[Rfam]
RNA: Bacterial large subunit ribosomal RNA, nucleotides 1734 to 2067
Organism: Caldicellulosiruptor saccharolyticus
RNA sequence: CGGGUGAAGCACCGCUAAGGAACUCGGCAAACUGACCCCGUAACUUUGGGAGAAGGGGUGCCCUGAGGUGAUGAGCCUCAGGGUCGCAGGGAAUAGGCCCAAGCGACUGUUUAUCAAAAACACAGGUCUCUGCUAAGCCGAAAGGCGAGGUAUAGGGGCUGACGCCUGCCCGGUGCUGGAAGGUUAAGGGGAGGGGUGAAAAGCUCCGAACCGAAGCCCCAGUGAACGGCGGCCGUAACUAUAACGGUCCUAAGGUAGCGAAAUUCCUUGUCGGGUAAGUUCCGACCCGCACGAAUGGCGUAACGACUUGGGCGCUGUCUUGGCGGUGUGCCCG
Number, nucleotide and partner (000 for none) at each position: 001c334002g333003g332004g331005u000006g000007a000008a000009g329010c328011a327012c326013c325014g324015c323016u322017a000018a320019g319020g318021a000022a000023c000024u000025c000026g000027g000028c000029a000030a000031a000032c000033u000034g000035a059036c058037c057038c056039c055040g000041u000042a000043a000044c049045u000046u000047u000048g000049g044050g000051a000052g000053a000054a000055g039056g038057g037058g036059u035060g084061c083062c082063c081064u080065g079066a078067g077068g076069u000070g000071a000072u000073g000074a000075g000076c068077c067078u066079c065080a064081g063082g062083g061084u060085c089086g000087c000088a000089g085090g000091g000092a000093a000094u000095a000096g000097g313098c312099c311100c310101a309102a308103g307104c305105g304106a000107c000108u122109g121110u120111u000112u000113a000114u000115c000116a000117a000118a000119a000120a110121c109122a108123c000124a000125g160126g159127u158128c157129u156130c155131u154132g153133c150134u000135a000136a000137g146138c145139c144140g000141a000142a000143a000144g139145g138146c137147g000148a000149g000150g133151u000152a000153u132154a131155g130156g129157g128158g127159c126160u125161g000162a000163c300164g299165c298166c297167u000168g230169c229170c228171c000172g000173g227174u226175g223176c222177u221178g220179g219180a000181a000182g218183g217184u216185u000186a000187a000188g212189g211190g000191g000192a000193g207194g206195g205196g204197u203198g000199a000200a000201a000202a000203g197204c196205u195206c194207c193208g000209a000210a000211c189212c188213g000214a000215a000216g184217c183218c182219c179220c178221a177222g176223u175224g000225a000226a174227c173228g170229g169230c168231g249232g248233c247234c246235g245236u244237a000238a000239c000240u000241a000242u000243a000244a236245c235246g234247g233248u232249c231250c254251u000252a000253a000254g250255g000256u000257a000258g000259c000260g287261a000262a000263a000264u000265u000266c000267c000268u000269u000270g286271u285272c284273g283274g282275g281276u000277a000278a000279g000280u000281u275282c274283c273284g272285a271286c270287c260288c000289g000290c000291a000292c000293g000294a000295a000296u000297g166298g165299c164300g163301u000302a000303a000304c105305g104306a000307c103308u102309u101310g100311g099312g098313c097314g000315c000316u000317g000318u020319c019320u018321u000322g016323g015324c014325g013326g012327u011328g010329u009330g000331c004332c003333c002334g001